[Rfam]
The family of this 46-nucleotide RNA from Streptomyces daliensis is "L31-Actinobacteria ribosomal protein leader". The base pairs follow the family's consensus structure, which is taken from published work. The family's RNA type in Rfam is cis-regulatory leader.

Nucleotides: 046
Base pairs, nucleotide, nucleotide: 003046004045005044007042008041009040010039015036016035017034019032020031021029022028
Number, partner (000 for none) and nucleotide at each position: 001000u002000c003046g004045g005044c006000c007042c008041c009040g010039g011000u012000u013000c014000a015036c016035g017034g018000c019032g020031g021029a022028c023000a024000a025000u026000c027000c028022g029021u030000u031020c032019c033000u034017c035016c036015g037000a038000c039010c040009c041008g042007g043000c044005g045004c046003c